eL15-Euryarchaeota ribosomal protein leader: a 72-nucleotide RNA sequence from Natrinema thermotolerans. The organism belongs to Natrinema thermotolerans, within Archaea. The family's RNA type in Rfam is cis-regulatory leader. Pairs were carried over by alignment from the consensus structure, which is taken from published work.
RNA sequence: CCUGCACGACGCCGUGUCACAGGUCGGGAUGUGAUCCGCGGGGCUUGGCCCCGGUCGGGAUUGAACCAGCAA
Numbered sequence: 001c002c003u004g005c006a007c008g009a010c011g012c013c014g015u016g017u018c019a020c021a022g023g024u025c026g027g028g029a030u031g032u033g034a035u036c037c038g039c040g041g042g043g044c045u046u047g048g049c050c051c052c053g054g055u056c057g058g059g060a061u062u063g064a065a066c067c068a069g070c071a072a
Stems, first nucleotide, its partner, number of pairs: 001023004026067002033062005